[Rfam]
The family of this 57-nucleotide sequence from Cucumis melo is "Plastid-rps18 3UTR RNA".
By type it is a cis-regulatory element.
About the family: Plastid rps18 is a non-coding RNA (ncRNA) present in plastids.
It scores 75 bits against the family's covariance model.
RNA sequence: GGCAAGUAUUUUACGAUUUAGAAGCAACUGCCUCUUGUGCAGAUUAUGUAUGAAUCU
Numbered sequence: 001g002g003c004a005a006g007u008a009u010u011u012u013a014c015g016a017u018u019u020a021g022a023a024g025c026a027a028c029u030g031c032c033u034c035u036u037g038u039g040c041a042g043a044u045u046a047u048g049u050a051u052g053a054a055u056c057u
Stems, first nucleotide, its partner, number of pairs: 018037001020035003024031002